[Rfam]
RNA sequence: AUGUGCUAUAUUGAGGUGGGUUAUAUAAGUCUGUAAUUGGUCAGACGUCUCUACAACUACCGUAAAUAGUUCACUAUAACUCAUAAAAAAAGGAGG
Numbered sequence: 001a002u003g004u005g006c007u008a009u010a011u012u013g014a015g016g017u018g019g020g021u022u023a024u025a026u027a028a029g030u031c032u033g034u035a036a037u038u039g040g041u042c043a044g045a046c047g048u049c050u051c052u053a054c055a056a057c058u059a060c061c062g063u064a065a066a067u068a069g070u071u072c073a074c075u076a077u078a079a080c081u082c083a084u085a086a087a088a089a090a091a092g093g094a095g096g
Stems, first nucleotide, its partner, number of pairs: 018082008030045004055071005

A member of the RNA family "Purine riboswitch aptamer" from Lachnobacterium bovis, 96 nucleotides long.
Taxonomically the source falls in Lachnobacterium bovis (Bacteria, Bacillota, Lachnospiraceae, Lachnobacterium).
Rfam's curators write: Riboswitches are metabolite binding domains within certain messenger RNAs that serve as precision sensors for their corresponding targets.